[Rfam]
RNA sequence: CGGUCGGCAGUUCACCAAGGCGUCGCUGGGCCCCGCAAGGGCAAGCUGAACCUGCCA
Numbered sequence: 001c002g003g004u005c006g007g008c009a010g011u012u013c014a015c016c017a018a019g020g021c022g023u024c025g026c027u028g029g030g031c032c033c034c035g036c037a038a039g040g041g042c043a044a045g046c047u048g049a050a051c052c053u054g055c056c057a
Stems, first nucleotide, its partner, number of pairs: 002016003029042001031040002
The family of this 57-nucleotide RNA from Pseudogemmobacter blasticus is "COG3860 RNA". NCBI's taxonomy places the organism under Bacteria, Pseudomonadati, Rhodobacterales, Paracoccaceae, Pseudogemmobacter blasticus.